Rfam assigns this 132-nucleotide RNA sequence from Microcebus murinus to the family "Small nucleolar RNA SNORA11". The organism belongs to Microcebus, within Eukaryota. U107 (SNORA11) is a member of the H/ACA class of snoRNAs that guide the sites of modification of uridines to pseudouridines. This snoRNA was identified by RT-PCR from blood cells and its expression confirmed by Northern blot analysis. Gene Ontology terms of the family: RNA processing and nucleolus. By type it is an H/ACA-box small nucleolar RNA. For this family Rfam cites "A novel experimental approach for systematic identification of box H/ACA snoRNAs from eukaryotes" (Gu et al., Nucleic Acids Res, 2005).
[Rfam]
RNA sequence: GGGCUGUGCUCAGAGCAGGGGGCCUGAGGAGUGGCUCCUCUGUUUACAGCACAGCCAAUAGCAAUCCCGGGUCAUUGUGACAAAGGGUGGCACAGAAAUUGUGGCUUCCCUGAAAACAAAUGGCCUACACUC
Numbered sequence: 001g002g003g004c005u006g007u008g009c010u011c012a013g014a015g016c017a018g019g020g021g022g023c024c025u026g027a028g029g030a031g032u033g034g035c036u037c038c039u040c041u042g043u044u045u046a047c048a049g050c051a052c053a054g055c056c057a058a059u060a061g062c063a064a065u066c067c068c069g070g071g072u073c074a075u076u077g078u079g080a081c082a083a084a085g086g087g088u089g090g091c092a093c094a095g096a097a098a099u100u101g102u103g104g105c106u107u108c109c110c111u112g113a114a115a116a117c118a119a120a121u122g123g124c125c126u127a128c129a130c131u132c
Base pairs, nucleotide, nucleotide: 002056003055004054005053006052007051008050013045014044015043016042017041018040019039020038021037022035023034024033069125070124072122076118077117078116084107085106086105091103092102093101094100095099